[Rfam]
RNA sequence: UAAUUGUAAUCGCUGAAUUCAAAUUGAAACGGAGAAACCAAUAUUUUGUGGGCGAAAAACCACUUGGGGUGAAUCCUUUAAGUAAGGUAGGGUGACUCUUAACAUCCGAAUCCGACAGCUAACUCCGUAAGCGUUUAGAGAGAGAUCAU
Number, nucleotide and partner (000 for none) at each position: 001u000002a000003a000004u000005u000006g000007u000008a000009a000010u000011c133012g132013c131014u130015g000016a000017a000018u028019u027020c026021a000022a000023a000024u000025u000026g020027a019028a018029a128030c127031g126032g125033a124034g123035a000036a000037a000038c000039c066040a065041a000042u000043a000044u000045u000046u000047u000048g000049u000050g000051g000052g000053c000054g000055a000056a000057a000058a000059a000060c000061c000062a000063c000064u000065u040066g039067g113068g112069g111070u000071g000072a000073a000074u000075c087076c086077u085078u084079u000080a000081a000082g000083u000084a078085a077086g076087g075088u000089a000090g107091g106092g105093u104094g000095a000096c000097u000098c000099u000100u000101a000102a000103c000104a093105u092106c091107c090108g000109a000110a000111u069112c068113c067114g000115a000116c000117a000118g000119c000120u000121a000122a000123c034124u033125c032126c031127g030128u029129a000130a014131g013132c012133g011134u000135u000136u000137a000138g000139a000140g000141a000142g000143a000144g000145a000146u000147c000148a000149u000
This 149-nucleotide sequence from Virgibacillus necropolis belongs to the Rfam family "c-di-AMP riboswitch aptamer (ydaO/yuaA leader)".